[Rfam]
RNA sequence: UUUUUAUUUGCCAAACUCGCUGCGAAGUGAGGACGGAAAGCCACGGGUCUUUAUCAAAUAAAAGAUAGCCGGGUUGCGUAAC
Numbered sequence: 001u002u003u004u005u006a007u008u009u010g011c012c013a014a015a016c017u018c019g020c021u022g023c024g025a026a027g028u029g030a031g032g033a034c035g036g037a038a039a040g041c042c043a044c045g046g047g048u049c050u051u052u053a054u055c056a057a058a059u060a061a062a063a064g065a066u067a068g069c070c071g072g073g074u075u076g077c078g079u080a081a082c
Base pairs, nucleotide, nucleotide: 004078011036012035016031017030018029019028020027021026034068039075040074041073042072044071045070046069047066048065049064
The family of this 82-nucleotide sequence from Vibrio ishigakensis is "c-di-GMP-I-GGC riboswitch aptamer". The match comes from Rfam's covariance-model search (61 bits). Pairs were carried over by alignment from the consensus structure, which is taken from published work. For this family Rfam cites "Bioinformatic analysis of riboswitch structures uncovers variant classes with altered ligand specificity" (Weinberg et al., Proc Natl Acad Sci U S A, 2017).